RNA sequence: UCCCCGCUUUUCCUCCCUGAGCGGGUGCCUUUGUGUGUGACAGCAAAAGGCUUGCAGCCCCGGCCCUUUAGGUCGGGGCUCUUUUUU
Numbered sequence: 001u002c003c004c005c006g007c008u009u010u011u012c013c014u015c016c017c018u019g020a021g022c023g024g025g026u027g028c029c030u031u032u033g034u035g036u037g038u039g040a041c042a043g044c045a046a047a048a049g050g051c052u053u054g055c056a057g058c059c060c061c062g063g064c065c066c067u068u069u070a071g072g073u074c075g076g077g078g079c080u081c082u083u084u085u086u087u
Stems, first nucleotide, its partner, number of pairs: 003025006027051004031046003058078008
Burkholderia RNA 7 (anti-hemB): an 87-nucleotide sequence from Tepidimonas taiwanensis. For this family Rfam cites "Experimental identification of small non-coding regulatory RNAs in the opportunistic human pathogen Burkholderia cenocepacia J2315" (Ramos et al., Genomics, 2013). The family's consensus secondary structure is taken from published work. It scores 67 bits against the family's covariance model. Rfam describes the family as follows. This RNA motif was identified by computational search in b-proteobacteria Burkholderia. Rfam classes the family as a small RNA.